[Rfam]
RNA sequence: GAGUGUUACAGCUCUUUUAGAAUUUGUCUAGCAGGCCUUCCGGUGUUUGCCAGAAAGCACCC
Dot-bracket structure: .................................((..(((.(((....))).)))....)).
RNA: U7 small nuclear RNA
Organism: Sapajus apella